A member of the RNA family "Bacillaceae-1 RNA" from Bacillus licheniformis, 66 nucleotides long.
[Rfam]
RNA sequence: UUUAAAGGAAGGCAUGCUAAGAUCGCAACGUCCUGCUGCAACGCAUGCACUUGUAGGUCCUGUACU
Dot-bracket structure: ...........((((((.......(((.(.....).)))...))))))....(((.......))).
Numbered sequence: 001u002u003u004a005a006a007g008g009a010a011g012g013c014a015u016g017c018u019a020a021g022a023u024c025g026c027a028a029c030g031u032c033c034u035g036c037u038g039c040a041a042c043g044c045a046u047g048c049a050c051u052u053g054u055a056g057g058u059c060c061u062g063u064a065c066u
Stems, first nucleotide, its partner, number of pairs: 012048006025039003029035001053065003